[Rfam]
RNA sequence: UUGUUCAGUGAUACGAAAGCCUUCUAUUCACUGUGCCAUCUAGUUUCCGUAGAUGAUCAGAGGGGAAAAGAAGGCGAGAGCGAAUUCACGAGCGUCCUCAUACUGAGUAGGGUACUUAACUAUCUAGAUGGCCCUAUUUGGUAACUGCGCGAGGGAGACAUAG
Numbered sequence: 001u002u003g004u005u006c007a008g009u010g011a012u013a014c015g016a017a018a019g020c021c022u023u024c025u026a027u028u029c030a031c032u033g034u035g036c037c038a039u040c041u042a043g044u045u046u047c048c049g050u051a052g053a054u055g056a057u058c059a060g061a062g063g064g065g066a067a068a069a070g071a072a073g074g075c076g077a078g079a080g081c082g083a084a085u086u087c088a089c090g091a092g093c094g095u096c097c098u099c100a101u102a103c104u105g106a107g108u109a110g111g112g113u114a115c116u117u118a119a120c121u122a123u124c125u126a127g128a129u130g131g132c133c134c135u136a137u138u139u140g141g142u143a144a145c146u147g148c149g150c151g152a153g154g155g156a157g158a159c160a161u162a163g
Stems, first nucleotide, its partner, number of pairs: 019075002022072002031062002034059002037055005085157003089153001092150003103141003107137007115130001